[Rfam]
RNA sequence: CGUGUGGUAUCUGGCGGCAACAGGGCUGGAUGGCGACACGGCCUUAACAGAGGU
Number, nucleotide and partner (000 for none) at each position: 001c040002g039003u038004g037005u036006g000007g034008u033009a000010u000011c029012u028013g027014g026015c025016g000017g000018c000019a000020a000021c000022a000023g000024g000025g015026c014027u013028g012029g011030a000031u000032g000033g008034c007035g000036a005037c004038a003039c002040g001041g000042c000043c000044u000045u000046a000047a000048c000049a000050g000051a000052g000053g000054u000
Rfam assigns this 54-nucleotide RNA sequence from Xenorhabdus szentirmaii to the family "L31-Gammaproteobacteria ribosomal protein leader". The family's consensus secondary structure is taken from published work. The family is grouped with related families in Rfam's "Ribosomal Protein L31 Leader clan". Rfam's curators put it in the seed alignment.